[Rfam]
RNA sequence: CGCUCGAUGCCACACAGCCGGUAGCAAAAUGCGUUGACCGGUGGUGCUUUGAUCGGGCGGAGAAAAAGCCGGAAUUCUAAUGGCUUUUCGCAUGUUGAUAGGAACCUGUGGAUUGGCUUUCUCAUCCAACCACGGAGCCGGUUUCUGCGAUUACAUCU
Numbered sequence: 001c002g003c004u005c006g007a008u009g010c011c012a013c014a015c016a017g018c019c020g021g022u023a024g025c026a027a028a029a030u031g032c033g034u035u036g037a038c039c040g041g042u043g044g045u046g047c048u049u050u051g052a053u054c055g056g057g058c059g060g061a062g063a064a065a066a067a068g069c070c071g072g073a074a075u076u077c078u079a080a081u082g083g084c085u086u087u088u089c090g091c092a093u094g095u096u097g098a099u100a101g102g103a104a105c106c107u108g109u110g111g112a113u114u115g116g117c118u119u120u121c122u123c124a125u126c127c128a129a130c131c132a133c134g135g136a137g138c139c140g141g142u143u144u145c146u147g148c149g150a151u152u153a154c155a156u157c158u
Base pairs, nucleotide, nucleotide: 002058003057004056005055006054007053008052009050013046014045015044017042018041020039021038022037024032025031026030088150089149090148091147092146101139102138106135107134108133110131111130113128